[Rfam]
RNA sequence: UGAAAGAAUCUGUAAAGCUCAGGAGGGAUAGCGCCCGAAUAAACUACAUAUAAAUCAUGUUUAUAUGGCGCUAUCUAUCCUGAGCCUCACCGCUUCUUCUU
Numbered sequence: 001u002g003a004a005a006g007a008a009u010c011u012g013u014a015a016a017g018c019u020c021a022g023g024a025g026g027g028a029u030a031g032c033g034c035c036c037g038a039a040u041a042a043a044c045u046a047c048a049u050a051u052a053a054a055u056c057a058u059g060u061u062u063a064u065a066u067g068g069c070g071c072u073a074u075c076u077a078u079c080c081u082g083a084g085c086c087u088c089a090c091c092g093c094u095u096c097u098u099c100u101u
Base pairs, nucleotide, nucleotide: 010092017085018084019083020082021081022080023079024078026076027075028074029073030072031071032070033069034068035067
Shown here is a 101-nucleotide RNA from Helianthus annuus, a member of the family "MIR390 microRNA precursor family". The base pairs follow the family's consensus structure, which was predicted with WAR. Taxonomically the source falls in Helianthus (Eukaryota, Mesangiospermae, Gunneridae, Heliantheae). Its family is annotated with RISC complex and miRNA-mediated post-transcriptional gene silencing in the Gene Ontology.